RNA sequence: CGGCCACCGGGACGCAUCGAUCUUCGGACCGCAACACGGUCGCCGCACCGGCCCAGCAACGGGGCCGGAAGGUCCGAGGGGAGCGAGUGGCGAGACCGACCCGGCCUG
Numbered sequence: 001c002g003g004c005c006a007c008c009g010g011g012a013c014g015c016a017u018c019g020a021u022c023u024u025c026g027g028a029c030c031g032c033a034a035c036a037c038g039g040u041c042g043c044c045g046c047a048c049c050g051g052c053c054c055a056g057c058a059a060c061g062g063g064g065c066c067g068g069a070a071g072g073u074c075c076g077a078g079g080g081g082a083g084c085g086a087g088u089g090g091c092g093a094g095a096c097c098g099a100c101c102c103g104g105c106c107u108g
Stems, first nucleotide, its partner, number of pairs: 007104005013085003022079008038097002040093005
RNA: c-di-GMP-II-GAG riboswitch aptamer